[Rfam]
Nucleotides: 072
Base pairs, nucleotide, nucleotide: 001072002071003070004069
Number, partner (000 for none) and nucleotide at each position: 001072a002071u003070u004069c005000a006000u007000u008000g009000a010000u011000g012000u013000a014000a015000u016000u017000a018000u019000a020000u021000u022000u023000g024000c025000u026000a027000c028000u029000c030000u031000c032000g033000a034000c035000u036000g037000a038000u039000u040000g041000g042000a043000u044000g045000a046000c047000g048000a049000g050000u051000a052000c053000c054000c055000a056000c057000c058000a059000a060000g061000a062000u063000c064000u065000c066000u067000g068000a069004g070003a071002a072001u
The record is a 72-nucleotide sequence from Clytia hemisphaerica, which matches "Small nucleolar RNA SNORD24" in Rfam. Pairs were carried over by alignment from the consensus structure, which was predicted with PFOLD. By type it is a C/D-box small nucleolar RNA.